A member of the RNA family "Gammaproteobacterial sRNA STnc100" from Escherichia coli, 212 nucleotides long. The sequence is in the family's curated seed alignment.
RNA sequence: UCAGACUGAGCAUUCGUUAAAAAAAUUCGCAUGGUGAAUCCCCCUGUGCGGAGGGGCGACUGGUGUAUAAGGUGUCAUCUCUGACGACAACCUGGAGCGAGAUACGCGGGUUCAGGGACACCGGACUGAACUCACCGGGAGGCACCCGGCACCAUGUACAUGAUGAUACAGAUACGCAGUGUCAGCCCCUCUCCGGAGGGGCUUUUUAUCUG
Numbered sequence: 001u002c003a004g005a006c007u008g009a010g011c012a013u014u015c016g017u018u019a020a021a022a023a024a025a026u027u028c029g030c031a032u033g034g035u036g037a038a039u040c041c042c043c044c045u046g047u048g049c050g051g052a053g054g055g056g057c058g059a060c061u062g063g064u065g066u067a068u069a070a071g072g073u074g075u076c077a078u079c080u081c082u083g084a085c086g087a088c089a090a091c092c093u094g095g096a097g098c099g100a101g102a103u104a105c106g107c108g109g110g111u112u113c114a115g116g117g118a119c120a121c122c123g124g125a126c127u128g129a130a131c132u133c134a135c136c137g138g139g140a141g142g143c144a145c146c147c148g149g150c151a152c153c154a155u156g157u158a159c160a161u162g163a164u165g166a167u168a169c170a171g172a173u174a175c176g177c178a179g180u181g182u183c184a185g186c187c188c189c190u191c192u193c194c195g196g197a198g199g200g201g202c203u204u205u206u207u208a209u210c211u212g
Base pairs, nucleotide, nucleotide: 014166015165016164029157030156031155032154033153034152035151036150041056042055043054044053045052065092097107098106099105108133109132110131111130113128114127115126135149136148137147138146139145175212176211178209184203185202186201187200188199189198190197
Dot-bracket structure: .............(((............((((((((....(((((......)))))........(..........................)....(((.....)))((((.(((..........))).)))).(((((.....)))))))))))))......)))........((.(.....(((((((......))))))).....).))